Description: The family of this 66-nucleotide RNA sequence from Caenorhabditis elegans is "Small nucleolar RNA sn3060". The organism belongs to Caenorhabditis, within Eukaryota. The sequence is in the family's curated seed alignment. On this family, see Higa et al., Biochem Biophys Res Commun 2002: "Location of 2(')-O-methyl nucleotides in 26S rRNA and methylation guide snoRNAs in Caenorhabditis elegans". Rfam links the family to the GO terms RNA processing and nucleolus. The base pairs follow the family's consensus structure, which was predicted with WAR.

[Rfam]
RNA sequence: GCUUCUGUGAUCGACAACAAACCCAGCUCUCUGAAUGAUUGUGAGGUUAAGAAAACAGCUGAGAAG
Numbered sequence: 001g002c003u004u005c006u007g008u009g010a011u012c013g014a015c016a017a018c019a020a021a022c023c024c025a026g027c028u029c030u031c032u033g034a035a036u037g038a039u040u041g042u043g044a045g046g047u048u049a050a051g052a053a054a055a056c057a058g059c060u061g062a063g064a065a066g
Stems, first nucleotide, its partner, number of pairs: 002066004